The record is a 99-nucleotide sequence, which matches "RT-17 RNA" in Rfam. The sequence is in the family's curated seed alignment.
RNA sequence: GACCUUGCCUCUUGGCAAAACACAAAGCAGAGCCUCUUUUGGUUUGGUAGGUCUGGUGAUUACCGGAGUCGAAGAAUCAGAGGCGACAUAAGCAAAAAG
Numbered sequence: 001g002a003c004c005u006u007g008c009c010u011c012u013u014g015g016c017a018a019a020a021c022a023c024a025a026a027g028c029a030g031a032g033c034c035u036c037u038u039u040u041g042g043u044u045u046g047g048u049a050g051g052u053c054u055g056g057u058g059a060u061u062a063c064c065g066g067a068g069u070c071g072a073a074g075a076a077u078c079a080g081a082g083g084c085g086a087c088a089u090a091a092g093c094a095a096a097a098a099g
Base pairs, nucleotide, nucleotide: 006017007016008015009014042077043076044075050070053066054065055064056063

By type it is a small RNA.